[Rfam]
Record summary:
A member of the RNA family "miR-430 microRNA precursor family" from Nothobranchius furzeri, 69 nucleotides long. A reference for the family is Giraldez et al. (2005), "MicroRNAs regulate brain morphogenesis in zebrafish", Science.
RNA sequence: UUGAUUACCCUAACUUGAGCACUGAUGUGAUCUAUAAUUCAGUAAGUGCUACAUGUUGGGGUCAUUGCA
Numbered sequence: 001u002u003g004a005u006u007a008c009c010c011u012a013a014c015u016u017g018a019g020c021a022c023u024g025a026u027g028u029g030a031u032c033u034a035u036a037a038u039u040c041a042g043u044a045a046g047u048g049c050u051a052c053a054u055g056u057u058g059g060g061g062u063c064a065u066u067g068c069a
Stems, first nucleotide, its partner, number of pairs: 004065002007062005013056002016053002018050006025043002

The base pairs follow the family's consensus structure, which was predicted with RNAalifold. Gene Ontology terms of the family: miRNA-mediated post-transcriptional gene silencing and RISC complex. The match comes from Rfam's covariance-model search (54 bits).